[Rfam]
RNA sequence: GAUGUGAACUUAAUAGAAAUGCGUAUAAUUUCGGGGAUAUGGCCCAGAGUUUCUACCAGACUGCCGUAAAUGGUCUGACUACGCAGCGGAAAUAAUUUUAU
Dot-bracket structure: ...................((((((...(((.(((.......))))))........(((((((.......)))))))..))))))................
Numbered sequence: 001g002a003u004g005u006g007a008a009c010u011u012a013a014u015a016g017a018a019a020u021g022c023g024u025a026u027a028a029u030u031u032c033g034g035g036g037a038u039a040u041g042g043c044c045c046a047g048a049g050u051u052u053c054u055a056c057c058a059g060a061c062u063g064c065c066g067u068a069a070a071u072g073g074u075c076u077g078a079c080u081a082c083g084c085a086g087c088g089g090a091a092a093u094a095a096u097u098u099u100a101u
Stems, first nucleotide, its partner, number of pairs: 020085006029048003033045003057077007

Shown here is a 101-nucleotide RNA sequence from Oceanobacillus oncorhynchi, a member of the family "Purine riboswitch aptamer". Its family is annotated with purine nucleobase biosynthetic process in the Gene Ontology. NCBI's taxonomy places the organism under Bacteria, Bacillota, Bacilli, Caryophanales, Oceanobacillus.